[Rfam]
Record summary: This 67-nucleotide RNA from Nematostella vectensis belongs to the Rfam family "mir-9428 microRNA precursor family". The sequence is in the family's curated seed alignment. NCBI's taxonomy places the organism under Eukaryota, Eumetazoa, Anthozoa, Edwardsiidae, Nematostella.

RNA sequence: ACCGCUCACGAACAUAGGGACACUGUUCGCGAAACUUUCGCGAACAUAUGUCCACAUGUUCUAGAGC
Numbered sequence: 001a002c003c004g005c006u007c008a009c010g011a012a013c014a015u016a017g018g019g020a021c022a023c024u025g026u027u028c029g030c031g032a033a034a035c036u037u038u039c040g041c042g043a044a045c046a047u048a049u050g051u052c053c054a055c056a057u058g059u060u061c062u063a064g065a066g067c
Stems, first nucleotide, its partner, number of pairs: 010061003018052002024046010